The family of this 105-nucleotide sequence from Prunus avium is "MIR6274 microRNA precursor family". Gene Ontology terms of the family: miRNA-mediated post-transcriptional gene silencing and RISC complex. NCBI's taxonomy places the organism under Eukaryota, Tracheophyta, fabids, Rosales, Prunus. Pairs were carried over by alignment from the consensus structure, which was predicted with RNAalifold.
[Rfam]
Nucleotides: 105
Base pairs, nucleotide, nucleotide: 003103004102005101011094012093013092014091015090016089017088018087019086021084022083023082024081025080026079027078028077029076030075031074032073033072034071035070036069037068038067039066040065041064042063043062044061045060047058048057049056
Number, partner (000 for none) and nucleotide at each position: 001000a002000a003103a004102u005101a006000a007000c008000a009000c010000u011094u012093u013092u014091u015090g016089c017088u018087a019086u020000g021084c022083u023082c024081g025080a026079u027078u028077a029076a030075u031074a032073a033072c034071g035070c036069a037068a038067u039066g040065a041064c042063a043062c044061g045060u046000a047058g048057g049056a050000u051000a052000a053000c054000u055000u056049u057048u058047c059000c060045a061044c062043g063042u064041g065040u066039c067038a068037u069036u070035g071034u072033g073032u074031u075030a076029u077028u078027g079026g080025u081024c082023g083022g084021g085000g086019a087018u088017a089016g090015c091014a092013g093012a094011a095000c096000a097000c098000u099000g100000c101005u102004a103003u104000c105000c